[Rfam]
RNA sequence: AUACUUACCUGGCGGGGGAGAUACCAUGAUCACGAAAGUGGUUUUCCCAGGGCGAGGAUUAUCCAUUGCACUCCGGAUGUGCUGACCCCUGCUAUUUCCCUAAAUGUGCGAAACUCGACUGCAUAAUUUAUGGAUUGUGGGGGAGUGUGUUUGCAUUUUCCCUGA
Numbered sequence: 001a002u003a004c005u006u007a008c009c010u011g012g013c014g015g016g017g018g019a020g021a022u023a024c025c026a027u028g029a030u031c032a033c034g035a036a037a038g039u040g041g042u043u044u045u046c047c048c049a050g051g052g053c054g055a056g057g058a059u060u061a062u063c064c065a066u067u068g069c070a071c072u073c074c075g076g077a078u079g080u081g082c083u084g085a086c087c088c089c090u091g092c093u094a095u096u097u098c099c100c101u102a103a104a105u106g107u108g109c110g111a112a113a114c115u116c117g118a119c120u121g122c123a124u125a126a127u128u129u130a131u132g133g134a135u136u137g138u139g140g141g142g143g144a145g146u147g148u149g150u151u152u153g154c155a156u157u158u159u160c161c162c163u164g165a
Base pairs, nucleotide, nucleotide: 012122013121014120015119016048017047018046019045020044021043023042024041025040026039027038049090050089051088052087054086056083057082060079061078062077063076064075092117094115095113096111097110100108138164139163140162141161142160144159147156148155149154